[Rfam]
Shown here is a 60-nucleotide RNA sequence from Ictalurus punctatus, a member of the family "mir-9/mir-79 microRNA precursor family". For this family Rfam cites "Identification of tissue-specific microRNAs from mouse" (Lagos-Quintana et al., Curr Biol, 2002). The organism belongs to Ictalurus, within Eukaryota. Rfam's curators put it in the seed alignment. Pairs were carried over by alignment from the consensus structure, which was predicted with RNAalifold.
RNA sequence: UCUUUGGUUAUCUAGCUGUAUGAGUAUUUUGCACUUCAUAAAGCUAGAUAACCGAAAGUA
Numbered sequence: 001u002c003u004u005u006g007g008u009u010a011u012c013u014a015g016c017u018g019u020a021u022g023a024g025u026a027u028u029u030u031g032c033a034c035u036u037c038a039u040a041a042a043g044c045u046a047g048a049u050a051a052c053c054g055a056a057a058g059u060a
Base pairs, nucleotide, nucleotide: 001058003056004055005054006053007052008051009050010049011048012047013046014045015044016043017042019040020039021038022037023036024035